[Rfam]
RNA: Selenocysteine insertion sequence 1
Nucleotides: 067
Base pairs, nucleotide, nucleotide: 001067002066003065004064005063015052016051017050018049019048020047021046022045023044024043030040031039032038
Number, partner (000 for none) and nucleotide at each position: 001067g002066c003065g004064g005063c006000u007000g008000u009000a010000a011000u012000g013000a014000a015052g016051g017050u018049c019048u020047g021046c022045a023044c024043u025000g026000a027000a028000a029000g030040c031039g032038g033000c034000g035000u036000g037000c038032c039031c040030g041000u042000u043024g044023g045022u046021g047020u048019g049018g050017g051016c052015c053000g054000g055000a056000u057000g058000u059000c060000c061000u062000c063005g064004u065003c066002g067001u